[Rfam]
RNA sequence: CGAGUCGGUCAGACGAUCGCUUUCCGGUAUUUACCGGGGGGAGGAAAGUCCGGGCUCCAUAGGGCAGGGUGCCAGGUAACGCCUGGGGGGUGCGAGCCCACGGAAAGUGCAGCAGAAAGUAAACCGCCUUUGCGGUUCUUGUUUUCAAGACCAAAAAGGUAAGGGUGAAAUGGUGCGGUAAGAGCGCACCGCGCGGCUGGCAACAGGCGCGGCGAUGGUAAACCCCACCCGGAGCAAGACCAAAUAGGAAUCCUAUAGCCGUGGCCCACGGUGGAUUCGGGUAGGUCGCUUCAGGCAGCUGGUGACAGCUGUCGCAGAUGAAUGGUCGUCCACGACAGAACCCGGCUUAUCGACCGACUCACCUU
Numbered sequence: 001c002g003a004g005u006c007g008g009u010c011a012g013a014c015g016a017u018c019g020c021u022u023u024c025c026g027g028u029a030u031u032u033a034c035c036g037g038g039g040g041g042a043g044g045a046a047a048g049u050c051c052g053g054g055c056u057c058c059a060u061a062g063g064g065c066a067g068g069g070u071g072c073c074a075g076g077u078a079a080c081g082c083c084u085g086g087g088g089g090g091u092g093c094g095a096g097c098c099c100a101c102g103g104a105a106a107g108u109g110c111a112g113c114a115g116a117a118a119g120u121a122a123a124c125c126g127c128c129u130u131u132g133c134g135g136u137u138c139u140u141g142u143u144u145u146c147a148a149g150a151c152c153a154a155a156a157a158g159g160u161a162a163g164g165g166u167g168a169a170a171u172g173g174u175g176c177g178g179u180a181a182g183a184g185c186g187c188a189c190c191g192c193g194c195g196g197c198u199g200g201c202a203a204c205a206g207g208c209g210c211g212g213c214g215a216u217g218g219u220a221a222a223c224c225c226c227a228c229c230c231g232g233a234g235c236a237a238g239a240c241c242a243a244a245u246a247g248g249a250a251u252c253c254u255a256u257a258g259c260c261g262u263g264g265c266c267c268a269c270g271g272u273g274g275a276u277u278c279g280g281g282u283a284g285g286u287c288g289c290u291u292c293a294g295g296c297a298g299c300u301g302g303u304g305a306c307a308g309c310u311g312u313c314g315c316a317g318a319u320g321a322a323u324g325g326u327c328g329u330c331c332a333c334g335a336c337a338g339a340a341c342c343c344g345g346c347u348u349a350u351c352g353a354c355c356g357a358c359u360c361a362c363c364u365u
Base pairs, nucleotide, nucleotide: 002360003359004358005357006356007355008354009353010352011350012330013329014328015327016326017325018324020041021040022039023038024037025036026035027034028033046348047347048346050345051344052343053342054341055234056233057232058231062267063266064265065264067230068229069228070227071226072086073085074084075083076082087101088099089098090097091096102225103224107223108222109219110218124164125163126160127159128158129157130156131155134152135151136150137149172190173189174188175187176186177185191213192211193210194209195208197206198205199204238287239286240285241284248278249277250276251275252274253273258272259271260270261269262268294313295312296311297310298309299308300307301306
Dot-bracket structure: .(((((((((((((((((.(((((((((....)))))))))....[[[.[[[[[((((...[[[[.((((((((((.....)))))(((((....)))).)((...((((.............((((((((..((((...........))))..))))))..)).......((((((.......))))))(((((.(((....))).)))).)....))..)))))))))))))...((((......((((((....(((((.]]]]))))))))))).....))))......((((((((....))))))))..........)))))))..........]]]]]]]].).))))))))).....
The record is a 365-nucleotide sequence from marine gamma proteobacterium HTCC2148, which matches "Bacterial RNase P class A" in Rfam. Rfam's curators write: Ribonuclease P (RNase P) is a ubiquitous endoribonuclease, found in archaea, bacteria and eukarya as well as chloroplasts and mitochondria. Lineage of the source: Bacteria > Pseudomonadota > Gammaproteobacteria > Cellvibrionales > Halieaceae. A search with the family's covariance model found it, with a score of 338 bits.